Shown here is a 227-nucleotide RNA sequence from Brunnivagina elsteri, a member of the family "c-di-AMP riboswitch aptamer (ydaO/yuaA leader)". The pairing is the family consensus, mapped onto this sequence. Taxonomically the source falls in Brunnivagina elsteri (Bacteria, Cyanobacteriota, Cyanophyceae, Calotrichaceae). This family represents a conserved RNA structure found upstream of the ydaO and yuaA genes in Bacillus subtilis and related genes in other bacteria.

RNA sequence: AAACUUUAAUUGCUUAAUGACUGUAAAUGCAAUUAAGUUGCUGGAACGGAGGAACCAAAUUUUGGGGCAUAUCUCUUGGUAGAUGAGGAAUUAAGAGUUGUAAAUUUAACAUUUAUCUAUGAAUAGUUUAAGUACAACAUCUAACUCAUUAUCUAUCAAUUUUUAGAGAAGGACAUCUCUCAGUCCUAGCCCGUCAGCUAACUUCGUAGGCAUUGAGAGGAAACUGA
Numbered sequence: 001a002a003a004c005u006u007u008a009a010u011u012g013c014u015u016a017a018u019g020a021c022u023g024u025a026a027a028u029g030c031a032a033u034u035a036a037g038u039u040g041c042u043g044g045a046a047c048g049g050a051g052g053a054a055c056c057a058a059a060u061u062u063u064g065g066g067g068c069a070u071a072u073c074u075c076u077u078g079g080u081a082g083a084u085g086a087g088g089a090a091u092u093a094a095g096a097g098u099u100g101u102a103a104a105u106u107u108a109a110c111a112u113u114u115a116u117c118u119a120u121g122a123a124u125a126g127u128u129u130a131a132g133u134a135c136a137a138c139a140u141c142u143a144a145c146u147c148a149u150u151a152u153c154u155a156u157c158a159a160u161u162u163u164u165a166g167a168g169a170a171g172g173a174c175a176u177c178u179c180u181c182a183g184u185c186c187u188a189g190c191c192c193g194u195c196a197g198c199u200a201a202c203u204u205c206g207u208a209g210g211c212a213u214u215g216a217g218a219g220g221a222a223a224c225u226g227a
Base pairs, nucleotide, nucleotide: 011212012211013210014209018045046207047206048205049204050203051202056064057063065192066191067190073168074167075166076165171186172185173184174183